[Rfam]
RNA sequence: UAAAGGUAACGCAAUGUGGAAUCCUUCCCGCCCGGUUGCUAUAGGUCAAUACACCCUGCCGACACACGGCAUAACAACAGGCGAUCCUCAUCGCCAUAAAACGUGCACCAGGGAGACAACGCCUCAUGCAG
Numbered sequence: 001u002a003a004a005g006g007u008a009a010c011g012c013a014a015u016g017u018g019g020a021a022u023c024c025u026u027c028c029c030g031c032c033c034g035g036u037u038g039c040u041a042u043a044g045g046u047c048a049a050u051a052c053a054c055c056c057u058g059c060c061g062a063c064a065c066a067c068g069g070c071a072u073a074a075c076a077a078c079a080g081g082c083g084a085u086c087c088u089c090a091u092c093g094c095c096a097u098a099a100a101a102c103g104u105g106c107a108c109c110a111g112g113g114a115g116a117c118a119a120c121g122c123c124u125c126a127u128g129c130a131g
Stems, first nucleotide, its partner, number of pairs: 012113001018028003034106001037103002057071005080095006